[Rfam]
RNA sequence: GAAAGGCUGUACGGUUUUUGUGCGGCUGGGCGGACGGUUUUGCCGUAAGCCUCAAUUAGG
Numbered sequence: 001g002a003a004a005g006g007c008u009g010u011a012c013g014g015u016u017u018u019u020g021u022g023c024g025g026c027u028g029g030g031c032g033g034a035c036g037g038u039u040u041u042g043c044c045g046u047a048a049g050c051c052u053c054a055a056u057u058a059g060g
Base pairs, nucleotide, nucleotide: 005027006026007025008024009023010022011021012020013019014018028052029051030050031049
Rfam assigns this 60-nucleotide sequence to the family "S4-Clostridia ribosomal protein leader". The sequence is in the family's curated seed alignment. The family's RNA type in Rfam is cis-regulatory leader. A reference for the family is Eckert and Weinberg (2020), "Discovery of 20 novel ribosomal leader candidates in bacteria and archaea", BMC Microbiol.